[Rfam]
The record is a 135-nucleotide RNA from Agrococcus casei, which matches "ALIL pseudoknot" in Rfam.
Rfam 15.1 lists 2,146 matches to the family in 1,098 species.

RNA sequence: CGCGUCUUUCUUCGGGGCGGAGCUCGACCGCCAACACCGGAAAUAGUUGCCUUCAUCGACGCGAACAAGAACGACGUCGUCGAAGGCCGCCCGCUCGGAGUCGAGCCCAUCUGCAAGGUGUUGCAGGUAGCUCCG
Numbered sequence: 001c002g003c004g005u006c007u008u009u010c011u012u013c014g015g016g017g018c019g020g021a022g023c024u025c026g027a028c029c030g031c032c033a034a035c036a037c038c039g040g041a042a043a044u045a046g047u048u049g050c051c052u053u054c055a056u057c058g059a060c061g062c063g064a065a066c067a068a069g070a071a072c073g074a075c076g077u078c079g080u081c082g083a084a085g086g087c088c089g090c091c092c093g094c095u096c097g098g099a100g101u102c103g104a105g106c107c108c109a110u111c112u113g114c115a116a117g118g119u120g121u122u123g124c125a126g127g128u129a130g131c132u133c134c135g
Stems, first nucleotide, its partner, number of pairs: 016032005096135005107130001110127007
A reference for the family is Mazauric et al. (2008), "Apical loop-internal loop RNA pseudoknots: a new type of stimulator of -1 translational frameshifting in bacteria", J Biol Chem.